MIR535 microRNA precursor family: a 98-nucleotide RNA from Zingiber officinale. The match comes from Rfam's covariance-model search (72 bits). Lineage of the source: Eukaryota > Embryophyta > Tracheophyta > commelinids > Zingiber.
RNA sequence: GUGCUUGUUUGACAACGAGAGAGAGCACGCCGGUCCACGAUCAUACCUGCGGCCAUGGCUGUGUGUACCAGCGUGCUUUUUCUCGUUGUCAACUGGCU
Numbered sequence: 001g002u003g004c005u006u007g008u009u010u011g012a013c014a015a016c017g018a019g020a021g022a023g024a025g026c027a028c029g030c031c032g033g034u035c036c037a038c039g040a041u042c043a044u045a046c047c048u049g050c051g052g053c054c055a056u057g058g059c060u061g062u063g064u065g066u067a068c069c070a071g072c073g074u075g076c077u078u079u080u081u082c083u084c085g086u087u088g089u090c091a092a093c094u095g096g097c098u
Stems, first nucleotide, its partner, number of pairs: 010091005016085002020081002023078001025076006032069003